[Rfam]
RNA sequence: AACUUCCUUGUCUCGGGGAGCAUAGUGCGCAGUGAUCGUAAAGUGAGAGCACUUAUGCUGACACCCACAAGUUAUACUUGAACCGCGCCCGGCCGCCGCAAGGGGGUCCGAGCGCAAUUUUUUGCUGG
Numbered sequence: 001a002a003c004u005u006c007c008u009u010g011u012c013u014c015g016g017g018g019a020g021c022a023u024a025g026u027g028c029g030c031a032g033u034g035a036u037c038g039u040a041a042a043g044u045g046a047g048a049g050c051a052c053u054u055a056u057g058c059u060g061a062c063a064c065c066c067a068c069a070a071g072u073u074a075u076a077c078u079u080g081a082a083c084c085g086c087g088c089c090c091g092g093c094c095g096c097c098g099c100a101a102g103g104g105g106g107u108c109c110g111a112g113c114g115c116a117a118u119u120u121u122u123u124g125c126u127g128g
Stems, first nucleotide, its partner, number of pairs: 005019005020058004024053005030047001037043001085115004090110001091107001093105002096103002

Rfam assigns this 128-nucleotide sequence from Arctia plantaginis to the family "U4atac minor spliceosomal RNA". On this family, see Lorkovic et al., RNA 2005: "Evolutionary conservation of minor U12-type spliceosome between plants and humans". Pairs were carried over by alignment from the consensus structure, which is taken from published work. The organism belongs to Arctia, within Eukaryota. From the family's description: U4atac is an essential component of the minor U12-type spliceosome complex which is required for removal of the rarer class of eukaryotic introns (AT-AC, U12-type). Its family is annotated with mRNA 5'-splice site recognition, U4atac snRNP and pre-mRNA 5'-splice site binding in the Gene Ontology.